The record is a 94-nucleotide RNA from Bacteroides caccae, which matches "TPP riboswitch aptamer (THI element)" in Rfam. The source organism's lineage runs through Bacteria, Bacteroidota, Bacteroidales, Bacteroidaceae and Bacteroides. The match comes from Rfam's covariance-model search (66 bits).
[Rfam]
RNA sequence: GUAAAGACAAAGGGGUGCCCCACGAGGGGCUGAGAUUAUACCCUAGGAACCUGAGGCAGUUAGCACUGACGUAGGGAUUGUGUUUCUUCUUAUC
Numbered sequence: 001g002u003a004a005a006g007a008c009a010a011a012g013g014g015g016u017g018c019c020c021c022a023c024g025a026g027g028g029g030c031u032g033a034g035a036u037u038a039u040a041c042c043c044u045a046g047g048a049a050c051c052u053g054a055g056g057c058a059g060u061u062a063g064c065a066c067u068g069a070c071g072u073a074g075g076g077a078u079u080g081u082g083u084u085u086c087u088u089c090u091u092a093u094c
Stems, first nucleotide, its partner, number of pairs: 007081004011044004016038001017030005050075004057068003